The family of this 38-nucleotide sequence from Flavobacterium sp. 316 is "DUF805b RNA". Pairs were carried over by alignment from the consensus structure, which is taken from published work. The organism belongs to Flavobacterium, within Bacteria.
[Rfam]
RNA sequence: UUGGAGGAACUCGAAAAUCCAAAUUAAUAGAGUAGGGA
Numbered sequence: 001u002u003g004g005a006g007g008a009a010c011u012c013g014a015a016a017a018u019c020c021a022a023a024u025u026a027a028u029a030g031a032g033u034a035g036g037g038a
Stems, first nucleotide, its partner, number of pairs: 002021004010037003